[Rfam]
RNA sequence: UGCAGGUGAUGUCUUUUCUCACGAUGGUCUUCUGAGCCUUUGUGGCUCUGAGGAUAAUGCCUUAUGGCUAUGCUGAUGCAGUUUU
Numbered sequence: 001u002g003c004a005g006g007u008g009a010u011g012u013c014u015u016u017u018c019u020c021a022c023g024a025u026g027g028u029c030u031u032c033u034g035a036g037c038c039u040u041u042g043u044g045g046c047u048c049u050g051a052g053g054a055u056a057a058u059g060c061c062u063u064a065u066g067g068c069u070a071u072g073c074u075g076a077u078g079c080a081g082u083u084u085u
Stems, first nucleotide, its partner, number of pairs: 001080004
A member of the RNA family "Small nucleolar RNA SNORD35" from Pangasianodon hypophthalmus, 85 nucleotides long. The family is grouped with related families in Rfam's "SNORD35 clan". About the family: U35 is a C/D box snoRNA located in intron 6 of ribosomal protein L13A and intron 3 of ribosomal protein S11 in humans and at homologous positions in mouse and chicken ribosomal protein genes. Its family is annotated with RNA processing and nucleolus in the Gene Ontology. The family's consensus secondary structure was predicted with PFOLD. By type it is a C/D-box small nucleolar RNA. A search with the family's covariance model found it, with a score of 72 bits. A reference for the family is Nicoloso et al. (1996), "Intron-encoded, antisense small nucleolar RNAs: the characterization of nine novel species points to their direct role as guides for the 2'-O-ribose methylation of rRNAs", J Mol Biol.